[Rfam]
RNA: narK RNA
RNA sequence: GGCCCGGCACUUGCUUGAUCCCCCCAGCGGGUAGCCAACGGCGGCCACCUUCCGCACGACAAAGACGUCGC
Dot-bracket structure: .............................(((.(((......))).)))......................
Numbered sequence: 001g002g003c004c005c006g007g008c009a010c011u012u013g014c015u016u017g018a019u020c021c022c023c024c025c026a027g028c029g030g031g032u033a034g035c036c037a038a039c040g041g042c043g044g045c046c047a048c049c050u051u052c053c054g055c056a057c058g059a060c061a062a063a064g065a066c067g068u069c070g071c
Stems, first nucleotide, its partner, number of pairs: 030049003034045003